[Rfam]
RNA sequence: AAAGAGCAAAGGCAAAACCGUCCAAAGACGGCGGCGCAAAGCUAAAGGGUCUAAGGCCCGUAUUGGCGUUAGCGGGUAAACGACAGCCAGCUGCCUCG
Dot-bracket structure: ...........((....(((((....)))))....))..((((...(((((......((...............)).....)))..))))))......

A member of the RNA family "c-di-GMP-I riboswitch aptamer" from Cloacibacillus porcorum, 98 nucleotides long.
Gene Ontology term of the family: cyclic-di-GMP binding.
For this family Rfam cites "Identification of 22 candidate structured RNAs in bacteria using the CMfinder comparative genomics pipeline" (Weinberg et al., Nucleic Acids Res, 2007).
Pairs were carried over by alignment from the consensus structure, which is taken from published work.
A search with the family's covariance model found it, with a score of 58 bits.